[Rfam]
RNA sequence: AGGAGGAACAACCCCACUGGCGGCGGCCAGCUCUCCAGCCCUGGAGUCAGCUCCCGCAGUAAGUCCCGCAGCUCCCCGUCCGCAGGGGCCUGGGUGCUCCGGGGGUGG
Numbered sequence: 001a002g003g004a005g006g007a008a009c010a011a012c013c014c015c016a017c018u019g020g021c022g023g024c025g026g027c028c029a030g031c032u033c034u035c036c037a038g039c040c041c042u043g044g045a046g047u048c049a050g051c052u053c054c055c056g057c058a059g060u061a062a063g064u065c066c067c068g069c070a071g072c073u074c075c076c077c078g079u080c081c082g083c084a085g086g087g088g089c090c091u092g093g094g095u096g097c098u099c100c101g102g103g104g105g106u107g108g
Base pairs, nucleotide, nucleotide: 002100003099004098005097007095009092010091012088013087014086019080020079021078022077023076025075026074029073030072031071032070033068037064041059042058043057
The family of this 108-nucleotide RNA from Nyctereutes procyonoides is "mir-8834 microRNA precursor family". The organism belongs to Nyctereutes, within Eukaryota. Rfam links the family to the GO terms miRNA-mediated post-transcriptional gene silencing and RISC complex. The match comes from Rfam's covariance-model search (43 bits). Pairs were carried over by alignment from the consensus structure, which was predicted with RNAalifold.